[Rfam]
RNA: Nuclear RNase P
Organism: Crocodylus porosus
RNA sequence: UCAGAAGGAAGCUCACCACUGAGAUCACUUGCUGAGUGCUGGUCACUCCCUUCUCUCUGCCUCUGGGAAGGUCUGAGACAAGAGCCAGCAGCUGCCCUUGCAAGGCACCCCCUGCUGCAGGGGAAUGAGGUACAGGGAGGCUGGGCCCCGUCUAGGGAGAGACACAAGAAGUCUGAGAGGAGGUUAUUCUCCCUUGACUGAUGCCCAUGCCCUGUGCAGGGUCUUGAGACAGGCUCAUGGCUGGCACCCUUGAGUCCAAUGGGAUGAGGUGAGGCUUGCUCCCCACAUGCAGGACUCACAACCCAAUUCAGACUACUCUCCCUCUGA
Dot-bracket structure: ((((..(((..[[[[[[...(((..........(((((.....)))))............))).........(((((.....((((......((((.......)))).(((((.....))))).(((((.(.............(.(((.....................................................................))).)........).)))))))))...................]].]]]](((((.(((((.........))))).))))).......))))).......)))..))))